[Rfam]
RNA sequence: GGGGCUGAUUCUGGAUUCGACGGGAUUUGCGAAACCCAAGGUGCAUGCCGAGGGGCGGUUUGCCUCGUAAAAAGCCGCAAAAAAAUAGUCGCAAACGACGAUAAAUACGCACUGGCAGCUUAAUAACCUGCGCAGAGCCCUCUCUCCCUAGCCUCCGCUCUUAGGACGUGGAUCAAGAGAGGUCAAACCUAAAAGAGAUCGCGUGGAUGCCUAGCCUGGGGUUGAAGCGUUAAACUUAAUCAGGAUAGUCUGUUAGUAGUGUGUCUGUCCACAGCUAGCUGGCGAAUGUAAAGACUAGACUAAGCAUGUAGUACCGAGGAUGUAGAAAUUUCGGACGCGGGUUCAACUCCCGCCAGCUCCACCA
Numbered sequence: 001g002g003g004g005c006u007g008a009u010u011c012u013g014g015a016u017u018c019g020a021c022g023g024g025a026u027u028u029g030c031g032a033a034a035c036c037c038a039a040g041g042u043g044c045a046u047g048c049c050g051a052g053g054g055g056c057g058g059u060u061u062g063c064c065u066c067g068u069a070a071a072a073a074g075c076c077g078c079a080a081a082a083a084a085a086u087a088g089u090c091g092c093a094a095a096c097g098a099c100g101a102u103a104a105a106u107a108c109g110c111a112c113u114g115g116c117a118g119c120u121u122a123a124u125a126a127c128c129u130g131c132g133c134a135g136a137g138c139c140c141u142c143u144c145u146c147c148c149u150a151g152c153c154u155c156c157g158c159u160c161u162u163a164g165g166a167c168g169u170g171g172a173u174c175a176a177g178a179g180a181g182g183u184c185a186a187a188c189c190u191a192a193a194a195g196a197g198a199u200c201g202c203g204u205g206g207a208u209g210c211c212u213a214g215c216c217u218g219g220g221g222u223u224g225a226a227g228c229g230u231u232a233a234a235c236u237u238a239a240u241c242a243g244g245a246u247a248g249u250c251u252g253u254u255a256g257u258a259g260u261g262u263g264u265c266u267g268u269c270c271a272c273a274g275c276u277a278g279c280u281g282g283c284g285a286a287u288g289u290a291a292a293g294a295c296u297a298g299a300c301u302a303a304g305c306a307u308g309u310a311g312u313a314c315c316g317a318g319g320a321u322g323u324a325g326a327a328a329u330u331u332c333g334g335a336c337g338c339g340g341g342u343u344c345a346a347c348u349c350c351c352g353c354c355a356g357c358u359c360c361a362c363c364a
Stems, first nucleotide, its partner, number of pairs: 001360007021333008034321001036319002040315003044308005049067005055078006112135003115131004139182006146171002149168001152165003158197005202229003213246001215244004248283003252279006259272003263300004267295003337353005
Record summary:
Shown here is a 364-nucleotide RNA sequence from Arsenophonus endosymbiont of Aphis craccivora, a member of the family "transfer-messenger RNA". Gene Ontology term of the family: RNA catabolic process. The base pairs follow the family's consensus structure, which is taken from published work. A search with the family's covariance model found it, with a score of 281 bits.